[Rfam]
Nucleotides: 077
Base pairs, nucleotide, nucleotide: 002075004073005072006071
Number, partner (000 for none) and nucleotide at each position: 001000u002075g003000a004073a005072u006071c007000g008000c009000u010000g011000a012000u013000g014000a015000u016000u017000u018000c019000u020000g021000g022000u023000c024000a025000u026000c027000a028000u029000c030000a031000a032000u033000a034000u035000u036000a037000g038000u039000u040000g041000u042000a043000u044000a045000c046000g047000a048000c049000g050000a051000a052000u053000a054000c055000a056000u057000g058000u059000c060000u061000g062000g063000a064000a065000c066000u067000c068000u069000g070000a071006g072005g073004u074000c075002c076000a077000a
Description:
The record is a 77-nucleotide RNA from Physeter macrocephalus, which matches "Small nucleolar RNA SNORD113/SNORD114 family" in Rfam. A search with the family's covariance model found it, with a score of 47 bits. From the family's description: The imprinted human domain at 14q32 contains two clusters of tandemly repeated small nucleolar RNAs named 14q(I) and 14q(II) snoRNAs. By type it is a C/D-box small nucleolar RNA. Its Rfam clan is "SNORD74 clan". Gene Ontology terms of the family: nucleolus and RNA processing.